[Rfam]
RNA: L31-Firmicutes ribosomal protein leader
RNA sequence: CUUUCUCUGAACGACAUUACGGUUCAGGGCGGAAGGAG
Number, nucleotide and partner (000 for none) at each position: 001c029002u028003u027004u026005c000006u022007c021008u000009g000010a000011a000012c000013g000014a000015c000016a000017u000018u000019a000020c000021g007022g006023u000024u000025c000026a004027g003028g002029g001030c000031g000032g000033a000034a000035g000036g000037a000038g000